[Rfam]
RNA sequence: GUCUCUCGGACGACCCACUCCUCCUCCCUAGGGGCGUCCGAUGGAACGGUGGCACUCCUCCUCCCAGCCGCUGUUCACUCUUUUAAAAAGCCUGCCGCACCUCCUCCCGCGGCAGGCUUUUUUG
Number, nucleotide and partner (000 for none) at each position: 001g000002u000003c000004u000005c000006u000007c040008g039009g038010a037011c036012g035013a000014c033015c032016c031017a000018c000019u000020c000021c000022u000023c000024c000025u000026c000027c000028c000029u000030a000031g016032g015033g014034g000035c012036g011037u010038c009039c008040g007041a000042u000043g000044g076045a075046a074047c073048g072049g071050u070051g069052g068053c067054a000055c000056u000057c000058c000059u000060c000061c000062u000063c000064c000065c000066a000067g053068c052069c051070g050071c049072u048073g047074u046075u045076c044077a000078c000079u000080c000081u000082u000083u000084u000085a000086a000087a000088a119089a118090g117091c116092c115093u114094g113095c112096c111097g110098c109099a000100c000101c000102u000103c000104c000105u000106c000107c000108c000109g098110c097111g096112g095113c094114a093115g092116g091117c090118u089119u088120u000121u000122u000123u000124g000
The record is a 124-nucleotide sequence from Gillisella ampelina, which matches "Alphaproteobacterial ar14" in Rfam.
The family's RNA type in Rfam is small RNA.
Rfam 15.1 lists 784 matches to the family in 332 species.
The source organism's lineage runs through Bacteria, Pseudomonadati, Rhizobiaceae, Gillisella and Gillisella ampelina.
It is one of the family's seed sequences.